[Rfam]
RNA sequence: AAAAAGGCCCUUUUCAGGGCCACAAAAUUUUCACGAACGUAUAAU
Numbered sequence: 001a002a003a004a005a006g007g008c009c010c011u012u013u014u015c016a017g018g019g020c021c022a023c024a025a026a027a028u029u030u031u032c033a034c035g036a037a038c039g040u041a042u043a044a045u
Base pairs, nucleotide, nucleotide: 006021007020008019009018010017011016
This 45-nucleotide RNA from Acanthosepion pharaonis belongs to the Rfam family "Histone 3' UTR stem-loop".
It is annotated as a cis-regulatory element.
NCBI's taxonomy places the organism under Eukaryota, Metazoa, Protostomia, Sepiina, Acanthosepion.
From the family's description: The mRNAs of metazoan histone genes lack a poly-A tail. 3' end processing occurs at a site between a highly conserved stem-loop (modelled by this family) and a purine rich region around 20 nts downstream (the histone downstream element, or HDE). The stem-loop is bound by a 31 kDa stem-loop binding protein (SLBP - also termed the histone hairpin binding protein, or HBP). Together with U7 snRNA binding of the HDE, SLBP binding nucleate s the formation of the processing complex. The histone 3' UTR stem-loop is also involved in nucleocytoplasmic transport of the mRNA, and in stability regulation and translation efficiency in the cytoplasm.